The record is an 84-nucleotide RNA sequence from Callorhinchus milii, which matches "mir-15 microRNA precursor family" in Rfam. Pairs were carried over by alignment from the consensus structure, which was predicted with RNAalifold. Lineage of the source: Eukaryota > Craniata > Vertebrata > Gnathostomata > Callorhinchus. On this family, see Lagos-Quintana et al., Science 2001: "Identification of novel genes coding for small expressed RNAs". Its Rfam clan is "mir-15 clan". A search with the family's covariance model found it, with a score of 60 bits. Gene Ontology terms of the family: miRNA-mediated post-transcriptional gene silencing and RISC complex. This family represents the related mir-15a and mir-15b sequences. In humans miR-15a and miR-16 are clustered within 0.5 kb at 13q14. This region has been shown to be deleted in more than half of B cell chronic lymphocytic leukaemias (CLL). Both miR-15a and miR-16 are deleted or down-regulated in more than two thirds of CLL cases. The mature sequence is excised from the 5' arm of the hairpin.
[Rfam]
RNA sequence: UUUUAAAUUGCUGUAGCAGCACAUCAUGGUUUGCAGGACUGCCUGAUAUGGCAAAUCAUAAUUUGCUGCUUUAGUGCUUUAAGG
Numbered sequence: 001u002u003u004u005a006a007a008u009u010g011c012u013g014u015a016g017c018a019g020c021a022c023a024u025c026a027u028g029g030u031u032u033g034c035a036g037g038a039c040u041g042c043c044u045g046a047u048a049u050g051g052c053a054a055a056u057c058a059u060a061a062u063u064u065g066c067u068g069c070u071u072u073a074g075u076g077c078u079u080u081a082a083g084g
Base pairs, nucleotide, nucleotide: 001084002083003082004081005080006079013072015070016069017068018067019066020065021064023062024061026059027058028057029056030055031054032053033052034051036049